Background:
The family of this 83-nucleotide RNA from Geosporobacter ferrireducens is "S10-Clostridia ribosomal protein leader". It is annotated as a cis-regulatory leader. The family's consensus secondary structure is taken from published work. The match comes from Rfam's covariance-model search (47 bits).
[Rfam]
RNA sequence: GGACUGCGAUGAAGUGAAAGGUUGCCAAAAAGGAUUUGGGGGAAAUUUUCGCGGAGAAUGUCCGUUCAAGAAUCGGGCGACAG
Number, nucleotide and partner (000 for none) at each position: 001g000002g000003a000004c000005u000006g000007c000008g000009a000010u000011g000012a000013a000014g052015u051016g050017a000018a049019a048020g047021g046022u000023u000024g000025c039026c038027a037028a036029a035030a000031a000032g000033g000034a000035u029036u028037u027038g026039g025040g000041g000042g000043a000044a000045a000046u021047u020048u019049u018050c016051g015052c014053g000054g000055a000056g000057a000058a000059u082060g081061u080062c079063c000064g078065u077066u076067c075068a000069a000070g000071a000072a000073u000074c000075g067076g066077g065078c064079g062080a061081c060082a059083g000

On this family, see Eckert and Weinberg, BMC Microbiol 2020: "Discovery of 20 novel ribosomal leader candidates in bacteria and archaea".